RNA sequence: AUAAGCAAAGAUAAAAACACAGUUCUGGUUGGUAGUCCAGACGCAACUUAAAGUUGUCAGUAACCUGCCUCCUAAGGUUGUCCGUUCUUUGUCAGUAUCUA
Numbered sequence: 001a002u003a004a005g006c007a008a009a010g011a012u013a014a015a016a017a018c019a020c021a022g023u024u025c026u027g028g029u030u031g032g033u034a035g036u037c038c039a040g041a042c043g044c045a046a047c048u049u050a051a052a053g054u055u056g057u058c059a060g061u062a063a064c065c066u067g068c069c070u071c072c073u074a075a076g077g078u079u080g081u082c083c084g085u086u087c088u089u090u091g092u093c094a095g096u097a098u099c100u101a
Stems, first nucleotide, its partner, number of pairs: 005092007022042002025040004043057006067078004
RNA: azaaromatic riboswitch aptamer (yjdF RNA)